RNA sequence: AGAGCCUUAUCGCCUGGAGGGUGAGAACCCCCGAUGGGUUCGAGCCGAGCGAAGCGAGACCGCGUUGCCGAAGGCAACGACCCGCAGGGCGAGGCGUAGCCGAGUAAUCCCUCCAGGCGCGCCA
Numbered sequence: 001a002g003a004g005c006c007u008u009a010u011c012g013c014c015u016g017g018a019g020g021g022u023g024a025g026a027a028c029c030c031c032c033g034a035u036g037g038g039u040u041c042g043a044g045c046c047g048a049g050c051g052a053a054g055c056g057a058g059a060c061c062g063c064g065u066u067g068c069c070g071a072a073g074g075c076a077a078c079g080a081c082c083c084g085c086a087g088g089g090c091g092a093g094g095c096g097u098a099g100c101c102g103a104g105u106a107a108u109c110c111c112u113c114c115a116g117g118c119g120c121g122c123c124a
Stems, first nucleotide, its partner, number of pairs: 015115007022107001032091002039086001041084002046056002063079006
Source information:
The record is a 124-nucleotide sequence from Marinobacterium iners, which matches "RtT RNA" in Rfam. It scores 88 bits against the family's covariance model. Rfam describes the family as follows. This family represents a bacterial cis-regulatory element known as RtT RNA. The exact function of RtT is unknown although it is thought that it may be involved in changing the cellular response in relation to amino acid starvation. Its family is annotated with cellular response to amino acid starvation in the Gene Ontology. Rfam classes the family as a cis-regulatory element. The family has 57 seed sequences and 651 matches in Rfam 15.1. For this family Rfam cites "A novel RNA product of the tyrT operon of Escherichia coli" (Bosl and Kersten, Nucleic Acids Res, 1991).